Rfam assigns this 178-nucleotide RNA from Robinsoniella sp. RHS to the family "NiCo (Nickel/Cobalt) riboswitch aptamer". Lineage of the source: Bacteria > Bacillati > Clostridia > Lachnospirales > Robinsoniella.
RNA sequence: ACAGUACAAACUGAGCAGGCGAUAAACCAUCUAAUGCCGCCCGAGUAAAUAGGCCACUAUAACACCUGACGCAGACAUCAGGCACUAUAUCGGCAUAUUUACAACCGGUGGCACUGGUUUGUGGGGCCGGGCCGCUAAGCGGCAGCAGAUGGGUAUGAAACACAUCUGUGGGACAGUA
Numbered sequence: 001a002c003a004g005u006a007c008a009a010a011c012u013g014a015g016c017a018g019g020c021g022a023u024a025a026a027c028c029a030u031c032u033a034a035u036g037c038c039g040c041c042c043g044a045g046u047a048a049a050u051a052g053g054c055c056a057c058u059a060u061a062a063c064a065c066c067u068g069a070c071g072c073a074g075a076c077a078u079c080a081g082g083c084a085c086u087a088u089a090u091c092g093g094c095a096u097a098u099u100u101a102c103a104a105c106c107g108g109u110g111g112c113a114c115u116g117g118u119u120u121g122u123g124g125g126g127c128c129g130g131g132c133c134g135c136u137a138a139g140c141g142g143c144a145g146c147a148g149a150u151g152g153g154u155a156u157g158a159a160a161c162a163c164a165u166c167u168g169u170g171g172g173a174c175a176g177u178a
Base pairs, nucleotide, nucleotide: 010177011176012175013174016172018128019127020126022122023121024120025119026118027117028116029115131143132142133141134140135139145169146168147167148166149165150164